[Rfam]
The family of this 99-nucleotide sequence from Coptis chinensis is "mir-399 microRNA precursor family". Gene Ontology terms of the family: RISC complex and miRNA-mediated post-transcriptional gene silencing. For this family Rfam cites "Computational Identification of Plant MicroRNAs and Their Targets, Including a Stress-Induced miRNA" (Jones-Rhoades and Bartel, Mol Cell, 2004). Lineage of the source: Eukaryota > Streptophyta > Spermatophyta > Magnoliopsida > Coptis. Rfam describes the family as follows. mir-399 was identified in both Arabidopsis thaliana and Oryza sativa computationally and was later experimentally verified. mir-399 is thought to target mRNAs coding for a phosphatase transporter. The mature sequence is excised from the 3' arm of the hairpin. The match comes from Rfam's covariance-model search (68 bits).

RNA sequence: AGAAGAAUAACAGUGUAGUUCUCCUUUGGCACAGAUUGGACAUUAUCAUUGCCCUGGUUUGUGGUUUGUGCCAAAGGAGAAUUGCCCUGCCAUUCACUC
Numbered sequence: 001a002g003a004a005g006a007a008u009a010a011c012a013g014u015g016u017a018g019u020u021c022u023c024c025u026u027u028g029g030c031a032c033a034g035a036u037u038g039g040a041c042a043u044u045a046u047c048a049u050u051g052c053c054c055u056g057g058u059u060u061g062u063g064g065u066u067u068g069u070g071c072c073a074a075a076g077g078a079g080a081a082u083u084g085c086c087c088u089g090c091c092a093u094u095c096a097c098u099c
Stems, first nucleotide, its partner, number of pairs: 005095004011089003015085005021079004027073012